[Rfam]
RNA sequence: UUUGGCGUUGGGCUUAUUCUUCAUGAUGCCGUUGCCGACCGCAUGCAAUAAGUGGGUUUUACCUAAGCCGGUACCACCAUA
Numbered sequence: 001u002u003u004g005g006c007g008u009u010g011g012g013c014u015u016a017u018u019c020u021u022c023a024u025g026a027u028g029c030c031g032u033u034g035c036c037g038a039c040c041g042c043a044u045g046c047a048a049u050a051a052g053u054g055g056g057u058u059u060u061a062c063c064u065a066a067g068c069c070g071g072u073a074c075c076a077c078c079a080u081a
Base pairs, nucleotide, nucleotide: 005042006041007040009038011036012035013034016032017031021028052077053076054075056074057073061072062071063070